[Rfam]
Shown here is a 186-nucleotide RNA from Hoylesella oralis, a member of the family "Bacteroidales-1 6S-Bacteroidales RNA suggested". Lineage of the source: Bacteria > Bacteroidota > Bacteroidia > Hoylesella > Hoylesella oralis. On this family, see Ryan et al., Nat Commun 2020: "A high-resolution transcriptome map identifies small RNA regulation of metabolism in the gut microbe Bacteroides thetaiotaomicron". Rfam classes the family as a small RNA.

RNA sequence: GGUUGUUUCGAUUUGAUCGGGAUACUCAUCAAAUAAUUCUGAAAACCGAGAUGUCUCCUUUUGUUAAUGGCGGGCCACAUAAAUUCCGAUGGAACUAAGCAGAAAUGCCGGUGGAUUACAAAGGCGGAGGGCUCUCAAAUCAUACAUGAUUAGGAGUUUUCAUCACAUCGUCGGGCAGCCCCUUUU
Numbered sequence: 001g002g003u004u005g006u007u008u009c010g011a012u013u014u015g016a017u018c019g020g021g022a023u024a025c026u027c028a029u030c031a032a033a034u035a036a037u038u039c040u041g042a043a044a045a046c047c048g049a050g051a052u053g054u055c056u057c058c059u060u061u062u063g064u065u066a067a068u069g070g071c072g073g074g075c076c077a078c079a080u081a082a083a084u085u086c087c088g089a090u091g092g093a094a095c096u097a098a099g100c101a102g103a104a105a106u107g108c109c110g111g112u113g114g115a116u117u118a119c120a121a122a123g124g125c126g127g128a129g130g131g132c133u134c135u136c137a138a139a140u141c142a143u144a145c146a147u148g149a150u151u152a153g154g155a156g157u158u159u160u161c162a163u164c165a166c167a168u169c170g171u172c173g174g175g176c177a178g179c180c181c182c183u184u185u186u
Stems, first nucleotide, its partner, number of pairs: 055131002058129001060128006068120002075114004099108003

Rfam describes the family as follows. Bacteroidales-1 was first reported in a comparative genomics-based approach of genome and metagenome sequences from Weinberg et al. 2010 In a high-resolution transcriptome map study of Bacteroides thetaiotaomicron, Ryan et al. 2020 report this sRNA as 6S RNA homologue of Bacteroides, in the study they obtain evidence of small product RNAs (pRNAs) related to 6S function.